[Rfam]
RNA sequence: CAUAAGCUACAUUGUUCGUAAUGAUAAUUAAGUUUUAACCUUUAUGCUGUUAUAGGGAGUUUUAUAUCGAUGCAAGAAUGUCAAGCCUUCAUUACGAAAAAGGACGACAGGACUGUAUCUGCAAACACCCACUUUGAGGAGUGGUGGUUUAAAACUUUCUUAUGUGAGUUACGGCAAAUGCGGCUUAUCA
Dot-bracket structure: .(((((((.((((((.(((...........((((.(((((..............(((.((((...(..((((((.....((....((((..........))))...)).....)))))))..)))).)))...............)).))).))))..............))))))).)).)))))))..
Numbered sequence: 001c002a003u004a005a006g007c008u009a010c011a012u013u014g015u016u017c018g019u020a021a022u023g024a025u026a027a028u029u030a031a032g033u034u035u036u037a038a039c040c041u042u043u044a045u046g047c048u049g050u051u052a053u054a055g056g057g058a059g060u061u062u063u064a065u066a067u068c069g070a071u072g073c074a075a076g077a078a079u080g081u082c083a084a085g086c087c088u089u090c091a092u093u094a095c096g097a098a099a100a101a102g103g104a105c106g107a108c109a110g111g112a113c114u115g116u117a118u119c120u121g122c123a124a125a126c127a128c129c130c131a132c133u134u135u136g137a138g139g140a141g142u143g144g145u146g147g148u149u150u151a152a153a154a155c156u157u158u159c160u161u162a163u164g165u166g167a168g169u170u171a172c173g174g175c176a177a178a179u180g181c182g183g184c185u186u187a188u189c190a
Stems, first nucleotide, its partner, number of pairs: 002188007010180002012177004017173003031156004036151003039147002055130003059126004066120001069119006080108002086103004